[Rfam]
RNA sequence: GAAGCCUGGUUUCAACUGGUGGGUAGAAGGUAGGAGAGAAUCUAGCACCAUUUGAAAUCAGUGCCUC
Numbered sequence: 001g002a003a004g005c006c007u008g009g010u011u012u013c014a015a016c017u018g019g020u021g022g023g024u025a026g027a028a029g030g031u032a033g034g035a036g037a038g039a040a041u042c043u044a045g046c047a048c049c050a051u052u053u054g055a056a057a058u059c060a061g062u063g064c065c066u067c
Stems, first nucleotide, its partner, number of pairs: 001067002004064001006061009017050005024044004
Dot-bracket structure: ((.(.(((((((((..(((((..((((.............)))).)))))..)))))))))..).))

This 67-nucleotide RNA from Chionoecetes opilio belongs to the Rfam family "mir-29 microRNA precursor family". This family represents the microRNA (miRNA) precursors mir-29. The family has 168 seed sequences and 3,328 matches in Rfam 15.1. The base pairs follow the family's consensus structure, which was predicted with PFOLD.